This 98-nucleotide sequence from Serangoonvirus essarone belongs to the Rfam family "PhotoRC-II RNA". Pairs were carried over by alignment from the consensus structure, which is taken from published work. By type it is a cis-regulatory element. The source organism's lineage runs through Viruses, Heunggongvirae, Uroviricota, Serangoonvirus and Serangoonvirus essarone.

[Rfam]
RNA sequence: UAACAAUGUUCCUCCUUCAACCGAGACCUAUGGGGAGGUUAAAAAGAAGUCUCUCAUCUUACCUUCACUUGAGGGUAGUGAAGGAAAUCAGUAAACGA
Numbered sequence: 001u002a003a004c005a006a007u008g009u010u011c012c013u014c015c016u017u018c019a020a021c022c023g024a025g026a027c028c029u030a031u032g033g034g035g036a037g038g039u040u041a042a043a044a045a046g047a048a049g050u051c052u053c054u055c056a057u058c059u060u061a062c063c064u065u066c067a068c069u070u071g072a073g074g075g076u077a078g079u080g081a082a083g084g085a086a087a088u089c090a091g092u093a094a095a096c097g098a
Stems, first nucleotide, its partner, number of pairs: 011038007023053005062084007